This 204-nucleotide RNA from Arthrobacter psychrochitiniphilus belongs to the Rfam family "c-di-AMP riboswitch aptamer (ydaO/yuaA leader)". It scores 43 bits against the family's covariance model.

RNA sequence: GCUCUGCCCCCGCCCAUUUCCCAACUUCUCCAUGGCAGAGACGGGGGACCCAUUAUUUGCGGGCCUUCCUCACUUGGAAGCCCUUGGGGUUAAGCCAGUGCAAUAACAGCCGAUUGUGAGCAGUGAAAGCUGCCACGGACCAUUGCACGGCCGGAUUCUCUAGUCCGUUCCCGACAGCUCACCUCGCAGGCGUAGAGAGGCUCC
Numbered sequence: 001g002c003u004c005u006g007c008c009c010c011c012g013c014c015c016a017u018u019u020c021c022c023a024a025c026u027u028c029u030c031c032a033u034g035g036c037a038g039a040g041a042c043g044g045g046g047g048a049c050c051c052a053u054u055a056u057u058u059g060c061g062g063g064c065c066u067u068c069c070u071c072a073c074u075u076g077g078a079a080g081c082c083c084u085u086g087g088g089g090u091u092a093a094g095c096c097a098g099u100g101c102a103a104u105a106a107c108a109g110c111c112g113a114u115u116g117u118g119a120g121c122a123g124u125g126a127a128a129g130c131u132g133c134c135a136c137g138g139a140c141c142a143u144u145g146c147a148c149g150g151c152c153g154g155a156u157u158c159u160c161u162a163g164u165c166c167g168u169u170c171c172c173g174a175c176a177g178c179u180c181a182c183c184u185c186g187c188a189g190g191c192g193u194a195g196a197g198a199g200g201c202u203c204c
Base pairs, nucleotide, nucleotide: 011192012191013190014189018040019039020038042186043185044184045183046182051086052085087172088171089170095150096149153166154165155164156163